[Rfam]
RNA sequence: UCUCAUGGCCUUGUCUCCCAACCCUUGUACCAGUGAUGUGCUGCAGUCCCUGGUACAGGUAUGGGAGGCAGGGACAUGGGG
Numbered sequence: 001u002c003u004c005a006u007g008g009c010c011u012u013g014u015c016u017c018c019c020a021a022c023c024c025u026u027g028u029a030c031c032a033g034u035g036a037u038g039u040g041c042u043g044c045a046g047u048c049c050c051u052g053g054u055a056c057a058g059g060u061a062u063g064g065g066a067g068g069c070a071g072g073g074a075c076a077u078g079g080g081g
Stems, first nucleotide, its partner, number of pairs: 010072003014068005022059002026057007
RNA: mir-150 microRNA precursor family